[Rfam]
RNA sequence: AAAAAGGGCUUCUCUUGUGAGUGGAAUCCAUAGGGCAACUCAGUUGUUCUUCUUGUGGAACAGACAUGAAGAGAUUUGAGAAGCAUAAUUUUUUUGGGUAUUUGGAUAUUUGGUGAUAGUUGAUCCUGGCCACUCU
Numbered sequence: 001a002a003a004a005a006g007g008g009c010u011u012c013u014c015u016u017g018u019g020a021g022u023g024g025a026a027u028c029c030a031u032a033g034g035g036c037a038a039c040u041c042a043g044u045u046g047u048u049c050u051u052c053u054u055g056u057g058g059a060a061c062a063g064a065c066a067u068g069a070a071g072a073g074a075u076u077u078g079a080g081a082a083g084c085a086u087a088a089u090u091u092u093u094u095u096g097g098g099u100a101u102u103u104g105g106a107u108a109u110u111u112g113g114u115g116a117u118a119g120u121u122g123a124u125c126c127u128g129g130c131c132a133c134u135c136u
Stems, first nucleotide, its partner, number of pairs: 008084005013026001015024003027055001032050007056079001058077003104134002110129004115125003